Shown here is a 232-nucleotide RNA sequence from Cohaesibacter sp. ES.047, a member of the family "permuted transfer-messenger RNA".
The match comes from Rfam's covariance-model search (144 bits).
RNA sequence: GGCAAUAAAUGGCCUCUGUAAUAAGCCUAUCGGACCCGGGGGCGGUACCCGGCGCCUCCACCAAAAGCACCGCAUCGUGAGCAUGACGCGAAGCGAUGUUUUUGCUGGGGGCGAAAUAGGAUCGACGAGGGUGUAAAGAUUGUGUUUUUGCUCGGCAUUGUACCACCGUUAUCGGGCUAAUUUUGUAGUUGCAAACGACAACUAUGCAGGCUCUCGUCUCGCUGCUGCUUAA
Numbered sequence: 001g002g003c004a005a006u007a008a009a010u011g012g013c014c015u016c017u018g019u020a021a022u023a024a025g026c027c028u029a030u031c032g033g034a035c036c037c038g039g040g041g042g043c044g045g046u047a048c049c050c051g052g053c054g055c056c057u058c059c060a061c062c063a064a065a066a067g068c069a070c071c072g073c074a075u076c077g078u079g080a081g082c083a084u085g086a087c088g089c090g091a092a093g094c095g096a097u098g099u100u101u102u103u104g105c106u107g108g109g110g111g112c113g114a115a116a117u118a119g120g121a122u123c124g125a126c127g128a129g130g131g132u133g134u135a136a137a138g139a140u141u142g143u144g145u146u147u148u149u150g151c152u153c154g155g156c157a158u159u160g161u162a163c164c165a166c167c168g169u170u171a172u173c174g175g176g177c178u179a180a181u182u183u184u185g186u187a188g189u190u191g192c193a194a195a196c197g198a199c200a201a202c203u204a205u206g207c208a209g210g211c212u213c214u215c216g217u218c219u220c221g222c223u224g225c226u227g228c229u230u231a232a
Stems, first nucleotide, its partner, number of pairs: 001152005014142001017139001026131003030128003036052005053113007153168003
The family's RNA type in Rfam is non-coding RNA gene. The source organism's lineage runs through Bacteria, Pseudomonadati, Hyphomicrobiales, Cohaesibacteraceae and Cohaesibacter. Gene Ontology term of the family: RNA catabolic process.